Description:
This 158-nucleotide RNA sequence from Cellulomonas chitinilytica belongs to the Rfam family "c-di-AMP riboswitch aptamer (ydaO/yuaA leader)". Rfam describes the family as follows. This family represents a conserved RNA structure found upstream of the ydaO and yuaA genes in Bacillus subtilis and related genes in other bacteria.
RNA sequence: UCCGUACAACCGCCGGCAGGGGCGGGGGACCCAAGUUCGGGCACCGGAAGUUCGGUGUCCUUGGGGUGAAGUCGCAGUGACAGCUCCAUCGUCACGGCGGCCGGGUGUUCUCCCACCCGAACCCGACAGCUCACCUCGCAGGCGACAGGAGAGGCACC
Dot-bracket structure: (((...............)))((((((....((((........................))))(((.....((((.....................))))..((((........))))...))).........))))))...................